[Rfam]
RNA sequence: GUUGGUGCGAAGUUGAUUUAAGGAGUGCCGCGCAGGUGCAUCAGUCACCUCUGAUCUUUGAACUCUCCUGGGAAGGUCUGAGAUGAGGUUCCAACUUACUCUUAUCGUUGAUUUGGUAAGGGAAGUUGUAUCCACCUAGCAGGGGAUCUCCCUAGUUGGGGGAAGGGCCGUACCAGAAAAAAUCGGUUCAUUUGCUGCUAUAUGCGUGGCACAAGACGACCAGUCGGUGGCAACAUUGGCUGCGCCGGAUGCUUGGUGUGUAUAGCGGCAGUUUGGAAACGGCGCUGAUACCAGCUGUGCUGAGUGCGAUAAUCAUAGUUAACUCAAUUCAGACUACUCUCUCGCCAAC
Numbered sequence: 001g002u003u004g005g006u007g008c009g010a011a012g013u014u015g016a017u018u019u020a021a022g023g024a025g026u027g028c029c030g031c032g033c034a035g036g037u038g039c040a041u042c043a044g045u046c047a048c049c050u051c052u053g054a055u056c057u058u059u060g061a062a063c064u065c066u067c068c069u070g071g072g073a074a075g076g077u078c079u080g081a082g083a084u085g086a087g088g089u090u091c092c093a094a095c096u097u098a099c100u101c102u103u104a105u106c107g108u109u110g111a112u113u114u115g116g117u118a119a120g121g122g123a124a125g126u127u128g129u130a131u132c133c134a135c136c137u138a139g140c141a142g143g144g145g146a147u148c149u150c151c152c153u154a155g156u157u158g159g160g161g162g163a164a165g166g167g168c169c170g171u172a173c174c175a176g177a178a179a180a181a182a183u184c185g186g187u188u189c190a191u192u193u194g195c196u197g198c199u200a201u202a203u204g205c206g207u208g209g210c211a212c213a214a215g216a217c218g219a220c221c222a223g224u225c226g227g228u229g230g231c232a233a234c235a236u237u238g239g240c241u242g243c244g245c246c247g248g249a250u251g252c253u254u255g256g257u258g259u260g261u262a263u264a265g266c267g268g269c270a271g272u273u274u275g276g277a278a279a280c281g282g283c284g285c286u287g288a289u290a291c292c293a294g295c296u297g298u299g300c301u302g303a304g305u306g307c308g309a310u311a312a313u314c315a316u317a318g319u320u321a322a323c324u325c326a327a328u329u330c331a332g333a334c335u336a337c338u339c340u341c342u343c344g345c346c347a348a349c
Stems, first nucleotide, its partner, number of pairs: 001349004009341002013317001018312002021069005034050005039044001078332005087292003131146003135143002147163006164286002167283004186272003
RNA: Nuclear RNase P